[Rfam]
Background: The family of this 101-nucleotide RNA sequence from Clostridium acetobutylicum is "TPP riboswitch aptamer (THI element)". Vitamin B(1) in its active form thiamin pyrophosphate (TPP) is an essential coenzyme that is synthesised by coupling of pyrimidine and thiazole moieties in bacteria. The organism belongs to Clostridium acetobutylicum, within Bacteria. The base pairs follow the family's consensus structure, which is taken from published work.
RNA sequence: UAUAUGUGCUAGGGGUGCCUUUAGGCUGAGAAACAGUUUGUCACGUUAACCCUUAACCUGAUCUGGAUAAUACCAGCGUAGGGAAGCAGUUUGAAUUUUGA
Dot-bracket structure: ......((((((((..(((....)))......((..........))...))))...((((..((((......))))..))))..)))).............